[Rfam]
The record is a 56-nucleotide sequence from Arenivirga flava, which matches "msiK RNA" in Rfam.
RNA sequence: CGCAUUCCCAUUCACAACGGAUCGUCCGGCACGUACCUGCCGGUGAAGAAGGAGAA
Numbered sequence: 001c002g003c004a005u006u007c008c009c010a011u012u013c014a015c016a017a018c019g020g021a022u023c024g025u026c027c028g029g030c031a032c033g034u035a036c037c038u039g040c041c042g043g044u045g046a047a048g049a050a051g052g053a054g055a056a
Base pairs, nucleotide, nucleotide: 009048011047012046013045014044026043027042028041029040030039031038